Shown here is a 125-nucleotide RNA from Vulpes vulpes, a member of the family "Small nucleolar RNA SNORA56". The match comes from Rfam's covariance-model search (116 bits). ACA56 is a member of the H/ACA class of snoRNA that guide the sites of modification of uridines to pseudouridines. Lineage of the source: Eukaryota > Opisthokonta > Teleostomi > Laurasiatheria > Vulpes.
RNA sequence: GCGCAGCAGUUACCCUUUUCUAGUCUGGCUCGAGGGACUCUAGAGGGAGUCCGUCUGCGACAGUAAGCGGUGAGCUCUUGUGUCUGUCAGUAUUUUGACGAUGGCCGUAGACUUGCCGGAUAGCA
Numbered sequence: 001g002c003g004c005a006g007c008a009g010u011u012a013c014c015c016u017u018u019u020c021u022a023g024u025c026u027g028g029c030u031c032g033a034g035g036g037a038c039u040c041u042a043g044a045g046g047g048a049g050u051c052c053g054u055c056u057g058c059g060a061c062a063g064u065a066a067g068c069g070g071u072g073a074g075c076u077c078u079u080g081u082g083u084c085u086g087u088c089a090g091u092a093u094u095u096u097g098a099c100g101a102u103g104g105c106c107g108u109a110g111a112c113u114u115g116c117c118g119g120a121u122a123g124c125a
Stems, first nucleotide, its partner, number of pairs: 003058004007053001019044005024037003068118007076111003082105003085100006